[Rfam]
Shown here is a 102-nucleotide sequence from Pontibacillus marinus, a member of the family "Purine riboswitch aptamer". The match comes from Rfam's covariance-model search (87 bits). The organism belongs to Pontibacillus marinus, within Bacteria. The base pairs follow the family's consensus structure, which is taken from published work. Its family is annotated with purine nucleobase biosynthetic process in the Gene Ontology.
RNA sequence: UUAAAAUGAUGCGGACGUACUCAUAUAAUCGCGAGGAUAUGGCUCGCAAGUUUCUACCGGAUUACCGUAAAUGAUCCGACUAUGGGUAUUGCAAGAUUUCAU
Numbered sequence: 001u002u003a004a005a006a007u008g009a010u011g012c013g014g015a016c017g018u019a020c021u022c023a024u025a026u027a028a029u030c031g032c033g034a035g036g037a038u039a040u041g042g043c044u045c046g047c048a049a050g051u052u053u054c055u056a057c058c059g060g061a062u063u064a065c066c067g068u069a070a071a072u073g074a075u076c077c078g079a080c081u082a083u084g085g086g087u088a089u090u091g092c093a094a095g096a097u098u099u100c101a102u
Stems, first nucleotide, its partner, number of pairs: 018088008029049001031047005058078007